[Rfam]
This 114-nucleotide sequence from Phyllobacterium endophyticum belongs to the Rfam family "Alphaproteobacterial ar15".
Its Rfam clan is "suhB sRNA clan".
Gene Ontology term of the family: protein binding.
By type it is a small RNA.
The base pairs follow the family's consensus structure.
It scores 64 bits against the family's covariance model.
The family has 61 seed sequences and 316 matches in Rfam 15.1.
The source organism's lineage runs through Bacteria, Pseudomonadota, Alphaproteobacteria, Hyphomicrobiales and Phyllobacterium.
RNA sequence: ACUUGCCGGUGCGUCUCCUCCUCCCAUUGCGCGCCCGCAAGUGUUCCCCUCUGGAGGUAUCGCCGGAAACGGCACCUUCAAAACUUAAGGCCGGGCAAUUGUCCGGCCUCUUUU
Numbered sequence: 001a002c003u004u005g006c007c008g009g010u011g012c013g014u015c016u017c018c019u020c021c022u023c024c025c026a027u028u029g030c031g032c033g034c035c036c037g038c039a040a041g042u043g044u045u046c047c048c049c050u051c052u053g054g055a056g057g058u059a060u061c062g063c064c065g066g067a068a069a070c071g072g073c074a075c076c077u078u079c080a081a082a083a084c085u086u087a088a089g090g091c092c093g094g095g096c097a098a099u100u101g102u103c104c105g106g107c108c109u110c111u112u113u114u
Stems, first nucleotide, its partner, number of pairs: 001042005008035002011032004052080007088109009